[Rfam]
RNA sequence: AAGGAAGAGAAAAAAGAAGAACAAUUAGAAGAAGAAAGAAGACUUAUGUAUGUUGCUAUUACAAGAGCUGAAGAAAAGUUAUGUAUAAGCUCUACUUUAAA
Numbered sequence: 001a002a003g004g005a006a007g008a009g010a011a012a013a014a015a016g017a018a019g020a021a022c023a024a025u026u027a028g029a030a031g032a033a034g035a036a037a038g039a040a041g042a043c044u045u046a047u048g049u050a051u052g053u054u055g056c057u058a059u060u061a062c063a064a065g066a067g068c069u070g071a072a073g074a075a076a077a078g079u080u081a082u083g084u085a086u087a088a089g090c091u092c093u094a095c096u097u098u099a100a101a
Stems, first nucleotide, its partner, number of pairs: 004098004008093003020054004029045003055090003060085004066080004